[Rfam]
RNA sequence: CCCGGUCCUCGACAGUGGCCCCCGGAACAUCGCGUCCGGGGGCUUCGAUCGAAGACCGGU
Numbered sequence: 001c002c003c004g005g006u007c008c009u010c011g012a013c014a015g016u017g018g019c020c021c022c023c024g025g026a027a028c029a030u031c032g033c034g035u036c037c038g039g040g041g042g043c044u045u046c047g048a049u050c051g052a053a054g055a056c057c058g059g060u
Stems, first nucleotide, its partner, number of pairs: 002059006009052004017044010028034001
Record summary
Actino-pnp RNA: a 60-nucleotide RNA from Actinomycetospora corticicola. The base pairs follow the family's consensus structure, which is taken from published work. Lineage of the source: Bacteria > Bacillati > Pseudonocardiales > Pseudonocardiaceae > Actinomycetospora. The match comes from Rfam's covariance-model search (55 bits).